Xanthomonadaceae sRNA asX1: a 109-nucleotide RNA sequence from Luteimonas sp. The family's RNA type in Rfam is small RNA.
RNA sequence: CACCCGGCGCGACAAGCGCCAUGCGCUGGCCAGUUUGGAACAGGGAUGGCCGUGUGCGAGCCGGGGGAGCGUGGGGGCCGAAUGUCGGGGGACGUUCGGCCCCUUUUUU
Number, nucleotide and partner (000 for none) at each position: 001c000002a000003c065004c064005c063006g062007g061008c060009g000010c058011g057012a055013c054014a000015a000016g026017c025018g024019c000020c000021a000022u000023g000024c018025g017026c016027u000028g051029g050030c049031c048032a047033g000034u000035u044036u043037g000038g000039a000040a000041c000042a000043g036044g035045g000046a000047u032048g031049g030050c029051c028052g000053u000054g013055u012056g000057c011058g010059a000060g008061c007062c006063g005064g004065g003066g000067g000068a000069g000070c000071g000072u000073g104074g103075g102076g101077g100078c099079c098080g097081a096082a095083u094084g093085u092086c091087g000088g000089g000090g000091g086092a085093c084094g083095u082096u081097c080098g079099g078100c077101c076102c075103c074104u073105u000106u000107u000108u000109u000